[Rfam]
The family of this 102-nucleotide RNA from Polaromonas sp. CG9_12 is "Glycine riboswitch aptamer".
RNA sequence: GCGUUCCCUGCUGGAGAGAGGCCGCUUUCAAGGCGGUCCACCGAAGGAGCAACCCUGCAUCGUCAGGCGAAUCUCUCAGGUAAAGUGGACAGAAGGGGCAGC
Numbered sequence: 001g002c003g004u005u006c007c008c009u010g011c012u013g014g015a016g017a018g019a020g021g022c023c024g025c026u027u028u029c030a031a032g033g034c035g036g037u038c039c040a041c042c043g044a045a046g047g048a049g050c051a052a053c054c055c056u057g058c059a060u061c062g063u064c065a066g067g068c069g070a071a072u073c074u075c076u077c078a079g080g081u082a083a084a085g086u087g088g089a090c091a092g093a094a095g096g097g098g099c100a101g102c
Base pairs, nucleotide, nucleotide: 006097007096008095009094011092012091013090020038021037022036023035040081041080042079043077044076047075048074049073054067055066056065057064
The match comes from Rfam's covariance-model search (59 bits).